This 107-nucleotide RNA sequence from Pseudomonas sp. v388 belongs to the Rfam family "Pseudomonas rnk leader". A search with the family's covariance model found it, with a score of 56 bits.
[Rfam]
RNA sequence: UCCCGUCGGGUUGUGUAUUUAUUGCCCUGUGUUAGUGUCAGAACCUGCUUUUCUUGAAAGAGAGGCCAAUCAAAACCCCGCCCACGCUGGCGGGGUUUUGCUUUUAU
Numbered sequence: 001u002c003c004c005g006u007c008g009g010g011u012u013g014u015g016u017a018u019u020u021a022u023u024g025c026c027c028u029g030u031g032u033u034a035g036u037g038u039c040a041g042a043a044c045c046u047g048c049u050u051u052u053c054u055u056g057a058a059a060g061a062g063a064g065g066c067c068a069a070u071c072a073a074a075a076c077c078c079c080g081c082c083c084a085c086g087c088u089g090g091c092g093g094g095g096u097u098u099u100g101c102u103u104u105u106a107u
Stems, first nucleotide, its partner, number of pairs: 005051001019035003023031002072099011
The family's RNA type in Rfam is cis-regulatory leader. Lineage of the source: Bacteria > Pseudomonadota > Gammaproteobacteria > Pseudomonadales > Pseudomonas.